RNA sequence: AAGUCGGCAAGUCAGAUCCGUAACUUCGGGAUAAGGAUUGGCUCUAAGGGCUGGGUCGGUCGGGCCGGGGUGCGAAGUGGGGCUGGGCCCGAGCCGCGGCUGGGGGAGCGGCCGUCCCGCCUCCCCGCCGCGCCGCCUCCCGCUGAAAAGCGUGCCGCGCGGCGUGUCCCUCCCGUCUCCUUCCGCCCGCCCUCUGCUCCGGCGCCGGGCGCCCCGCCUCGGCGGGGCCGCUCCGGCCGCUGGGGCUCUGGGCGGUGCGGGCCUGGGGGCGGGCCGGGGGCCGCCUCUACGCGACGCGCCGGACGGCGGGUCGGGCGUGCGGCGGGCGAGCGGUGCCGCGGCGGCGACUCUGGACGUGCGCCGGGCCCUUCUCGCGGAUCUCCCCGGCUAUGGUCCGCGCCGGGACCCCCGUCUCUUUUCCUCUCCCCUUUCGCGAGGGCGGGGGGCCGAGGGCGGGGGCCUCCCCGGUGCGGCGCCUCGGCCGGCGCCUAGCAGCCGGCUUAGAACUGGUGCGGACAAG
Numbered sequence: 001a002a003g004u005c006g007g008c009a010a011g012u013c014a015g016a017u018c019c020g021u022a023a024c025u026u027c028g029g030g031a032u033a034a035g036g037a038u039u040g041g042c043u044c045u046a047a048g049g050g051c052u053g054g055g056u057c058g059g060u061c062g063g064g065c066c067g068g069g070g071u072g073c074g075a076a077g078u079g080g081g082g083c084u085g086g087g088c089c090c091g092a093g094c095c096g097c098g099g100c101u102g103g104g105g106g107a108g109c110g111g112c113c114g115u116c117c118c119g120c121c122u123c124c125c126c127g128c129c130g131c132g133c134c135g136c137c138u139c140c141c142g143c144u145g146a147a148a149a150g151c152g153u154g155c156c157g158c159g160c161g162g163c164g165u166g167u168c169c170c171u172c173c174c175g176u177c178u179c180c181u182u183c184c185g186c187c188c189g190c191c192c193u194c195u196g197c198u199c200c201g202g203c204g205c206c207g208g209g210c211g212c213c214c215c216g217c218c219u220c221g222g223c224g225g226g227g228c229c230g231c232u233c234c235g236g237c238c239g240c241u242g243g244g245g246c247u248c249u250g251g252g253c254g255g256u257g258c259g260g261g262c263c264u265g266g267g268g269g270c271g272g273g274c275c276g277g278g279g280g281c282c283g284c285c286u287c288u289a290c291g292c293g294a295c296g297c298g299c300c301g302g303a304c305g306g307c308g309g310g311u312c313g314g315g316c317g318u319g320c321g322g323c324g325g326g327c328g329a330g331c332g333g334u335g336c337c338g339c340g341g342c343g344g345c346g347a348c349u350c351u352g353g354a355c356g357u358g359c360g361c362c363g364g365g366c367c368c369u370u371c372u373c374g375c376g377g378a379u380c381u382c383c384c385c386g387g388c389u390a391u392g393g394u395c396c397g398c399g400c401c402g403g404g405a406c407c408c409c410c411g412u413c414u415c416u417u418u419u420c421c422u423c424u425c426c427c428c429u430u431u432c433g434c435g436a437g438g439g440c441g442g443g444g445g446g447c448c449g450a451g452g453g454c455g456g457g458g459g460c461c462u463c464c465c466c467g468g469u470g471c472g473g474c475g476c477c478u479c480g481g482c483c484g485g486c487g488c489c490u491a492g493c494a495g496c497c498g499g500c501u502u503a504g505a506a507c508u509g510g511u512g513c514g515g516a517c518a519a520g
Base pairs, nucleotide, nucleotide: 015039016038017037018036019035024029040508041507043505044504045503046502047501048500049497050496051495052494053493055486056485057484058483059482060481061480062479063478509513
A member of the RNA family "Eukaryotic large subunit ribosomal RNA" from Hemibagrus wyckioides, 520 nucleotides of a longer RNA. It scores 2783 bits against the family's covariance model.